[Rfam]
RNA sequence: AAUUCGGUUUGUAGGAACAAAGAGAAGUAAGUCUAUUAUAUAUCCAAUAAGUACUAAUACACAAUGAGG
Numbered sequence: 001a002a003u004u005c006g007g008u009u010u011g012u013a014g015g016a017a018c019a020a021a022g023a024g025a026a027g028u029a030a031g032u033c034u035a036u037u038a039u040a041u042a043u044c045c046a047a048u049a050a051g052u053a054c055u056a057a058u059a060c061a062c063a064a065u066g067a068g069g
Stems, first nucleotide, its partner, number of pairs: 003022002007018004043068001045066001051060003
RNA: Plastid-clpP 5UTR RNA